small nucleolar RNA snoR114: a 93-nucleotide RNA sequence from Camellia sinensis. The match comes from Rfam's covariance-model search (47 bits). Rfam links the family to the GO terms RNA processing and nucleolus.
RNA sequence: GAGCUGUGACGAUGAUUGCGCCUCUUGUUGGCGGGUAGGGUCUGCCGCACUUGUCUGAUUCCUUCGAUUGAUCAAUUAGGCGUUUCUGAGCUC
Numbered sequence: 001g002a003g004c005u006g007u008g009a010c011g012a013u014g015a016u017u018g019c020g021c022c023u024c025u026u027g028u029u030g031g032c033g034g035g036u037a038g039g040g041u042c043u044g045c046c047g048c049a050c051u052u053g054u055c056u057g058a059u060u061c062c063u064u065c066g067a068u069u070g071a072u073c074a075a076u077u078a079g080g081c082g083u084u085u086c087u088g089a090g091c092u093c
Stems, first nucleotide, its partner, number of pairs: 001093004
Rfam classes the family as a C/D-box small nucleolar RNA.
The source organism's lineage runs through Eukaryota, Embryophyta, Mesangiospermae, Gunneridae and Camellia.
The base pairs follow the family's consensus structure, which was predicted with RNAalifold.